A member of the RNA family "Group II catalytic intron D1-D4-3" from Tepidibacillus fermentans, 136 nucleotides long. Pairs were carried over by alignment from the consensus structure. About the family: Group II introns are found in rRNA, tRNA and mRNA of organelles in fungi, plants and protists, and also in mRNA in bacteria. Taxonomically the source falls in Tepidibacillus (Bacteria, Bacillati, Bacilli, Bacillaceae).
[Rfam]
RNA sequence: AAACUCUGGUCUGAGGUACACGAACUACAUUUGAGGCUUAUCCUUGUGGGUGAGUUUGCGUAACAAAACAAAGCCCAAUAACUACCCGAAACAAGUAGAGUAUAUGUAGCGGAUAUAUGGAGUGAAAGUUUGCGCU
Numbered sequence: 001a002a003a004c005u006c007u008g009g010u011c012u013g014a015g016g017u018a019c020a021c022g023a024a025c026u027a028c029a030u031u032u033g034a035g036g037c038u039u040a041u042c043c044u045u046g047u048g049g050g051u052g053a054g055u056u057u058g059c060g061u062a063a064c065a066a067a068a069c070a071a072a073g074c075c076c077a078a079u080a081a082c083u084a085c086c087c088g089a090a091a092c093a094a095g096u097a098g099a100g101u102a103u104a105u106g107u108a109g110c111g112g113a114u115a116u117a118u119g120g121a122g123u124g125a126a127a128g129u130u131u132g133c134g135c136u
Base pairs, nucleotide, nucleotide: 003123004122005121006120007119008118009114010113011112012111013110025109026108027107028106029105030104036101037100038099041097043095044094045093046092047091048076049075050074051073054069055068056067057066